[Rfam]
RNA: Xanthine riboswitch aptamer (NMT1 RNA)
RNA sequence: AGCUUGAGUAGAAGCUGGCAGGGCGAAGCCCAGGUCAUUGCUCAGUUA
Numbered sequence: 001a002g003c004u005u006g007a008g009u010a011g012a013a014g015c016u017g018g019c020a021g022g023g024c025g026a027a028g029c030c031c032a033g034g035u036c037a038u039u040g041c042u043c044a045g046u047u048a
Base pairs, nucleotide, nucleotide: 005044006043007042008041009040010039015033018035019034021031022030023029024028